This 147-nucleotide sequence from Hoeflea marina belongs to the Rfam family "FMN riboswitch aptamer (RFN element)". The match comes from Rfam's covariance-model search (103 bits). Pairs were carried over by alignment from the consensus structure, which is taken from published work. The organism belongs to Hoeflea, within Bacteria. Its family is annotated with FMN binding in the Gene Ontology.

RNA sequence: CCCCGUUCUCAGGGCGGGGUGCAACUCCCCACCGGCGGUAUGCUGCGCAAGCGGCGAGCCCGCGAGCGCCCUUCCUUCGGGCAGGGGUCAGCAGACCAGGUGCGAUGCCUGGGCCGACGGUCACAGUCCGGAUGAGAGAGAACGCGC
Numbered sequence: 001c002c003c004c005g006u007u008c009u010c011a012g013g014g015c016g017g018g019g020u021g022c023a024a025c026u027c028c029c030c031a032c033c034g035g036c037g038g039u040a041u042g043c044u045g046c047g048c049a050a051g052c053g054g055c056g057a058g059c060c061c062g063c064g065a066g067c068g069c070c071c072u073u074c075c076u077u078c079g080g081g082c083a084g085g086g087g088u089c090a091g092c093a094g095a096c097c098a099g100g101u102g103c104g105a106u107g108c109c110u111g112g113g114c115c116g117a118c119g120g121u122c123a124c125a126g127u128c129c130g131g132a133u134g135a136g137a138g139a140g141a142a143c144g145c146g147c
Stems, first nucleotide, its partner, number of pairs: 004144007017029003031127002033116002035063004058114002066092002096112005118130003